Rfam assigns this 153-nucleotide sequence from Paracoccus sp. SM22M-07 to the family "Ruegeria cis2 sRNA".
RNA sequence: CACCGUCUUGUGCGGCGAAUAGUUGAUGAACAGGAAGCCGCGUUCCUGGUCGAUCAGGUGGAACAGCGGAUUCCAGAUGAACCAGGGCAGGAUGAAGUUCGGCAUGGUGUUGGCCACGAAGAACUUGCCCGAGGCGAACAUGUUUACCCGCUG
Numbered sequence: 001c002a003c004c005g006u007c008u009u010g011u012g013c014g015g016c017g018a019a020u021a022g023u024u025g026a027u028g029a030a031c032a033g034g035a036a037g038c039c040g041c042g043u044u045c046c047u048g049g050u051c052g053a054u055c056a057g058g059u060g061g062a063a064c065a066g067c068g069g070a071u072u073c074c075a076g077a078u079g080a081a082c083c084a085g086g087g088c089a090g091g092a093u094g095a096a097g098u099u100c101g102g103c104a105u106g107g108u109g110u111u112g113g114c115c116a117c118g119a120a121g122a123a124c125u126u127g128c129c130c131g132a133g134g135c136g137a138a139c140a141u142g143u144u145u146a147c148c149c150g151c152u153g
Base pairs, nucleotide, nucleotide: 003034004033006032008030009029013025014024015023040054041052042051044049064153065152066151067150068149071081072080073079086147089144090143092141093140094139098134099133100131101130102129103127104126106124108122110119111118112117

The literature on the family includes a 2016 paper in Front Microbiol by Rivers et al., "Experimental Identification of Small Non-Coding RNAs in the Model Marine Bacterium Ruegeria pomeroyi DSS-3".
Lineage of the source: Bacteria > Pseudomonadati > Pseudomonadota > Rhodobacterales > Paracoccus.